[Rfam]
Record summary:
A member of the RNA family "ASpks TB sRNA" from Nocardiopsis metallicus, 75 nucleotides long. The match comes from Rfam's covariance-model search (74 bits). By type it is an antisense RNA. The organism belongs to Nocardiopsis, within Bacteria.

RNA sequence: CUUGAGCGAACCCAGGUAGAGCGGCCGGUCCUCGGGGCGGUCCUGGCCGUAGGUGGCGAGCAGUGCUUGGGCCUC
Numbered sequence: 001c002u003u004g005a006g007c008g009a010a011c012c013c014a015g016g017u018a019g020a021g022c023g024g025c026c027g028g029u030c031c032u033c034g035g036g037g038c039g040g041u042c043c044u045g046g047c048c049g050u051a052g053g054u055g056g057c058g059a060g061c062a063g064u065g066c067u068u069g070g071g072c073c074u075c
Stems, first nucleotide, its partner, number of pairs: 015025001017023001031071003038065002043060002047056003